[Rfam]
RNA sequence: AAAAUUAAAUAGUAAUUAACCAUUAUAAACUAGAAAUAUGGUCUAGUGUUUCUACGUCCAACCAAUGUAAAGGGACUCUAGUGGUUGAUGUUUUACAACA
Numbered sequence: 001a002a003a004a005u006u007a008a009a010u011a012g013u014a015a016u017u018a019a020c021c022a023u024u025a026u027a028a029a030c031u032a033g034a035a036a037u038a039u040g041g042u043c044u045a046g047u048g049u050u051u052c053u054a055c056g057u058c059c060a061a062c063c064a065a066u067g068u069a070a071a072g073g074g075a076c077u078c079u080a081g082u083g084g085u086u087g088a089u090g091u092u093u094u095a096c097a098a099c100a
Stems, first nucleotide, its partner, number of pairs: 018086008029047006056076004
This 100-nucleotide RNA sequence from Spiroplasma syrphidicola belongs to the Rfam family "Purine riboswitch aptamer".
About the family: Riboswitches are metabolite binding domains within certain messenger RNAs that serve as precision sensors for their corresponding targets.